A member of the RNA family "purD RNA motif" from Campylobacter fetus, 130 nucleotides long.

[Rfam]
RNA sequence: GUACGCAAAUGGUGUGAUGCGAUCUCGUUUGUAGCCAUUUUUAGCGAGAGAUUGCGACCUAAAGUUUGAGUCUAUCUGCAAGGUUGGCUUUUUAUUAGGGCCGAUUCUACUGCGUAACGGCCAUUUGGGU
Numbered sequence: 001g002u003a004c005g006c007a008a009a010u011g012g013u014g015u016g017a018u019g020c021g022a023u024c025u026c027g028u029u030u031g032u033a034g035c036c037a038u039u040u041u042u043a044g045c046g047a048g049a050g051a052u053u054g055c056g057a058c059c060u061a062a063a064g065u066u067u068g069a070g071u072c073u074a075u076c077u078g079c080a081a082g083g084u085u086g087g088c089u090u091u092u093u094a095u096u097a098g099g100g101c102c103g104a105u106u107c108u109a110c111u112g113c114g115u116a117a118c119g120g121c122c123a124u125u126u127g128g129g130u
Stems, first nucleotide, its partner, number of pairs: 003071002006068004018057001019055003023051004034045002037042001084104007
Rfam classes the family as a cis-regulatory element. It is one of the family's seed sequences. Rfam links the family to the GO term regulation of gene expression. The organism belongs to Campylobacter fetus subsp. fetus, within Bacteria. The literature on the family includes a 2007 paper in Nucleic Acids Res by Weinberg et al., "Identification of 22 candidate structured RNAs in bacteria using the CMfinder comparative genomics pipeline".